Bacterial RNase P class A: a 363-nucleotide RNA from Pyruvatibacter mobilis. NCBI's taxonomy places the organism under Bacteria, Pseudomonadati, Pseudomonadota, Parvibaculaceae, Pyruvatibacter. It is annotated as a ribozyme. The match comes from Rfam's covariance-model search (319 bits). The base pairs follow the family's consensus structure, which is taken from published work.

[Rfam]
Nucleotides: 363
Base pairs, nucleotide, nucleotide: 001359002358003357004356005355006354007353008352009351010350011348012306013305014304015303016302017301018300020033021032022031023030024029038346039345040344042343043342044341045340046339047207048206049205050204056240057239060203061202062201063200064199065079066078067077068076069075080094081092082091083090084089095198096197100196101195102192103191104190117138118137119134120133121132122131123130124129146164147163148162149161150160151159165187166185167184168183170181171180172179173178211263212262213261214260221254222253223252224251225250226249232247233246234245235244236243270289271288272287273286274285275284276283277282
Number, partner (000 for none) and nucleotide at each position: 001359c002358c003357a004356g005355a006354u007353g008352g009351c010350c011348g012306g013305a014304u015303g016302g017301c018300c019000g020033c021032u022031g023030u024029g025000g026000u027000g028000a029024c030023a031022c032021a033020g034000a035000g036000g037000a038346a039345a040344g041000u042343c043342c044341g045340g046339g047207c048206u049205c050204c051000a052000c053000g054000g055000a056240a057239a058000c059000a060203c061202g062201g063200u064199g065079c066078c067077g068076g069075a070000u071000a072000a073000c074000g075069u076068c077067c078066g079065g080094c081092g082091g083090g084089g085000g086000c087000g088000a089084c090083c091082c092081c093000a094080g095198g096197g097000a098000a099000a100196g101195u102192g103191c104190c105000a106000c107000a108000g109000a110000a111000a112000g113000c114000a115000a116000a117138c118137c119134g120133c121132c122131u123130g124129c125000u126000u127000c128000g129124g130123c131122a132121g133120g134119u135000a136000a137118g138117g139000g140000u141000g142000a143000a144000a145000g146164g147163g148162u149161g150160c151159g152000g153000u154000a155000a156000g157000a158000g159151c160150g161149c162148a163147c164146c165187g166185c167184g168183c169000g170181u171180c172179u173178g174000g175000c176000a177000a178173c179172a180171g181170a182000g183168g184167c185166g186000g187165c188000a189000c190104g191103g192102u193000a194000a195101a196100c197096c198095c199064c200063a201062c202061c203060g204050g205049g206048a207047g208000c209000a210000a211263g212262a213261c214260c215000g216000a217000a218000u219000a220000g221254g222253g223252a224251u225250g226249g227000c228000a229000c230000a231000u232247g233246g234245c235244c236243c237000g238000u239057u240056u241000c242000c243236g244235g245234g246233c247232u248000g249226c250225u251224a252223u253222c254221c255000g256000g257000g258000u259000u260214g261213g262212u263211u264000g265000c266000a267000c268000c269000a270289g271288g272287c273286g274285u275284c276283u277282g278000g279000c280000a281000a282277c283276a284275g285274g286273c287272g288271u289270c290000g291000c292000a293000g294000a295000u296000g297000a298000a299000u300018g301017g302016c303015c304014a305013u306012c307000g308000c309000c310000u311000g312000c313000c314000g315000c316000c317000u318000u319000c320000c321000g322000g323000g324000g325000c326000a327000g328000c329000a330000g331000g332000u333000a334000c335000a336000g337000a338000a339046c340045c341044c342043g343042g344040c345039u346038u347000a348011c349000a350010g351009g352008c353007c354006a355005u356004c357003u358002g359001g360000c361000g362000c363000u